[Rfam]
RNA sequence: GGUGAUAAACGCUAUACGCAAUAGGCGAUACGGACCCGGGGGCGGUACCCGGCGCCUCCACCAAAAAGGCCUUAAAAAUAGGCCCUUUUGGUGGGGGUGAAAUAGGAUCGACGUGCGUUGAAAGGUAUGGUUUUUGCCCGGCAUUGUACCGCCGUUAUCGGGCUAUAUCAAAUAAGUGCAGCUAAAAAUACUGCAUUCGUUGUUAAGAAUUUUACGGUUCCAACCCCUUCAAUGGGUGCGGGAUCUGCACCAGCUGUAGCAGCUGCUGCUUAA
Dot-bracket structure: (((((........((((........((..(((...(((((.......)))))((((((((((...........................))))))))))............))).)).......)))).....)))))((((........)))).......................................................................................................................
A member of the RNA family "permuted transfer-messenger RNA" from Nucleicultrix amoebiphila, 273 nucleotides long. Lineage of the source: Bacteria > Alphaproteobacteria > Holosporales > Nucleicultrix (SeqCode) > Nucleicultrix amoebiphila (SeqCode). Bacterial tmRNA, also known as 10Sa RNA or SsrA, is named for its dual tRNA and mRNA-like properties. It is annotated as a non-coding RNA gene.